[Rfam]
RNA sequence: GAAUGAAAGAAGCAUGGUAAUGUUGCAUAGAAAUUGAUCUGGGUCUUUAGGCCUGCCCUCCCUGAUGCCUUUCGACUUUGAUUUGGCAGUAUGGUUCAAAAGCGAAACG
Numbered sequence: 001g002a003a004u005g006a007a008a009g010a011a012g013c014a015u016g017g018u019a020a021u022g023u024u025g026c027a028u029a030g031a032a033a034u035u036g037a038u039c040u041g042g043g044u045c046u047u048u049a050g051g052c053c054u055g056c057c058c059u060c061c062c063u064g065a066u067g068c069c070u071u072u073c074g075a076c077u078u079u080g081a082u083u084u085g086g087c088a089g090u091a092u093g094g095u096u097c098a099a100a101a102g103c104g105a106a107a108c109g
Base pairs, nucleotide, nucleotide: 012026013025014024015022041092043090044089051082053080055076057074
RNA: Small nucleolar RNA snoR100